The family of this 72-nucleotide RNA is "RT-18 RNA". The base pairs follow the family's consensus structure, which is taken from published work. The family's RNA type in Rfam is small RNA.
[Rfam]
RNA sequence: CAGCCCAUGCUGAAAAUUAUCCGAUAUAGGGCCGGGAUAGUAGAACCCGAAAUCCCGGCAGGAGAUAAGAAA
Numbered sequence: 001c002a003g004c005c006c007a008u009g010c011u012g013a014a015a016a017u018u019a020u021c022c023g024a025u026a027u028a029g030g031g032c033c034g035g036g037a038u039a040g041u042a043g044a045a046c047c048c049g050a051a052a053u054c055c056c057g058g059c060a061g062g063a064g065a066u067a068a069g070a071a072a
Stems, first nucleotide, its partner, number of pairs: 001012004020063003031059007043048001
Dot-bracket structure: ((((....)))).......(((........(((((((.....(....)....))))))).))).........